[Rfam]
RNA sequence: GCCGAGCUUUGUAACACAAGCUUGUAACCCGAGUGGGGGCUUUGAGGUGUUGGAACAUUGGCCAAGAAUUAGCGGGUCGGGUUCGAGCUGGCUAUCUACUGGCCUGCCCAUUCCAAGCUAGGAGUUGAACCCUGUGGCUUGAGCGAAGGCUCUGGGUCACUGGUUUCCUAGAGAGAAGGGAACCGCGUAAGGCUGGCUUUACAGAGCAACGACUACCUCCCGCUCUUGGCAGUGGAAGGAUUACAGGUCGGUGUCACUCGGAUCCACCAUGGUCCGCUAGACUGACCCAAUAGAACCAAAACCUUU
Numbered sequence: 001g002c003c004g005a006g007c008u009u010u011g012u013a014a015c016a017c018a019a020g021c022u023u024g025u026a027a028c029c030c031g032a033g034u035g036g037g038g039g040c041u042u043u044g045a046g047g048u049g050u051u052g053g054a055a056c057a058u059u060g061g062c063c064a065a066g067a068a069u070u071a072g073c074g075g076g077u078c079g080g081g082u083u084c085g086a087g088c089u090g091g092c093u094a095u096c097u098a099c100u101g102g103c104c105u106g107c108c109c110a111u112u113c114c115a116a117g118c119u120a121g122g123a124g125u126u127g128a129a130c131c132c133u134g135u136g137g138c139u140u141g142a143g144c145g146a147a148g149g150c151u152c153u154g155g156g157u158c159a160c161u162g163g164u165u166u167c168c169u170a171g172a173g174a175g176a177a178g179g180g181a182a183c184c185g186c187g188u189a190a191g192g193c194u195g196g197c198u199u200u201a202c203a204g205a206g207c208a209a210c211g212a213c214u215a216c217c218u219c220c221c222g223c224u225c226u227u228g229g230c231a232g233u234g235g236a237a238g239g240a241u242u243a244c245a246g247g248u249c250g251g252u253g254u255c256a257c258u259c260g261g262a263u264c265c266a267c268c269a270u271g272g273u274c275c276g277c278u279a280g281a282c283u284g285a286c287c288c289a290a291u292a293g294a295a296c297c298a299a300a301a302c303c304u305u306u
Base pairs, nucleotide, nucleotide: 001040002039003038004023005022006021007020008019009018028037029036030035044305045304046303047302048301050299051298052297053296056293058290059289060288061286063284064283069280070279071278072277073276074275075274076273077272078271079265080264081263082262083261084260085259086258087257089256090255091254093253094252099251100250101249102248103247104246105245106244108239109238111237112236113235114234115233117230118229119228120227121226122225123224124223125222127167128166129165131163132162134160135159136158137157138156139155140154141153142151143150144149168173175220177218178217179216186211187210188209193204194203195202
RNA: Plant signal recognition particle RNA